[Rfam]
RNA sequence: CGUUAGGAGGUUACCUCUGUCGUUACUCGCCUUGUUGCGGAUACGGGAAUGUAGCUGUUAA
Number, nucleotide and partner (000 for none) at each position: 001c000002g000003u000004u000005a000006g000007g000008a000009g056010g055011u054012u053013a052014c051015c000016u000017c000018u000019g000020u046021c045022g044023u043024u000025a000026c000027u040028c039029g038030c000031c000032u000033u000034g000035u000036u000037g000038c029039g028040g027041a000042u000043a023044c022045g021046g020047g000048a000049a000050u000051g014052u013053a012054g011055c010056u009057g000058u000059u000060a000061a000